[Rfam]
Nucleotides: 061
Base pairs, nucleotide, nucleotide: 003056004055005054006053007052008051009050010049012047013046014045015044016043017042018041019040020039021038025032
Number, partner (000 for none) and nucleotide at each position: 001000u002000u003056a004055c005054a006053a007052u008051u009050a010049a011000a012047g013046g014045a015044u016043a017042u018041u019040u020039c021038c022000u023000g024000c025032g026000a027000c028000a029000c030000u031000a032025u033000a034000a035000g036000a037000c038021g039020g040019a041018a042017a043016u044015a045014u046013c047012u048000u049010u050009u051008a052007a053006u054005u055004g056003u057000u058000u059000g060000g061000c
mir-7552 microRNA precursor family: a 61-nucleotide RNA sequence from Albula glossodonta. Rfam 15.1 lists 220 matches to the family in 102 species. The organism belongs to Albula, within Eukaryota. Gene Ontology terms of the family: RISC complex and miRNA-mediated post-transcriptional gene silencing.